[Rfam]
RNA sequence: UGGCGCCCAACGUGGGGCUGGAUACUGGGGGCAUCUCGUGAGGGAGAUGACGGAAAAAGGAAGGAGUGCACUCAUUCAAUUUCGAGUAGUUCGGAGAUGUGCCGUGAGAGCCUGCUGCAACCAAACCGAAGGUAAGUUGUGCCAUCCAAUUAUGGGGCAAGAAUUGAGCCAGCAUCAGAUUUAUGUCAAGCAAUUGAGAGAGGCUCUAAAGACACGAGGAGUAAAGGUUAGGACUGCGGAUUUAUUUCAUUUCUUUGAUUUUGUAAAGGACAUUUGUCCCU
Number, nucleotide and partner (000 for none) at each position: 001u000002g000003g000004c000005g000006c031007c030008c029009a000010a000011c000012g025013u024014g023015g000016g000017g000018c000019u000020g000021g000022a000023u014024a013025c012026u000027g000028g000029g008030g007031g006032c000033a000034u000035c000036u050037c049038g048039u047040g000041a000042g000043g000044g000045a000046g000047a039048u038049g037050a036051c000052g000053g000054a000055a000056a000057a000058a000059g000060g000061a000062a000063g000064g000065a000066g000067u000068g000069c000070a000071c000072u000073c000074a000075u000076u000077c000078a000079a000080u000081u000082u000083c000084g000085a000086g000087u000088a133089g000090u131091u129092c128093g000094g000095a000096g000097a000098u124099g000100u000101g000102c000103c000104g118105u117106g116107a000108g000109a000110g000111c000112c000113u000114g000115c000116u106117g105118c104119a000120a000121c000122c000123a000124a098125a000126c000127c000128g092129a091130a000131g090132g000133u088134a000135a000136g000137u000138u000139g000140u159141g158142c157143c000144a000145u156146c155147c154148a153149a000150u000151u000152a000153u148154g147155g146156g145157g142158c141159a140160a000161g000162a000163a000164u000165u208166g207167a000168g204169c203170c202171a000172g000173c000174a000175u000176c000177a000178g000179a000180u000181u000182u000183a000184u000185g000186u000187c000188a000189a000190g000191c000192a000193a000194u000195u000196g000197a000198g000199a000200g000201a000202g170203g169204c168205u000206c000207u166208a165209a000210a000211g000212a000213c000214a000215c257216g256217a255218g254219g253220a252221g251222u000223a000224a000225a243226g242227g241228u240229u239230a000231g000232g000233a000234c000235u000236g000237c000238g000239g229240a228241u227242u226243u225244a000245u000246u000247u000248c000249a000250u000251u221252u220253c219254u218255u217256u216257g215258a000259u000260u000261u000262u000263g000264u000265a000266a281267a000268g279269g278270a277271c276272a000273u000274u000275u000276g271277u270278c269279c268280c000281u266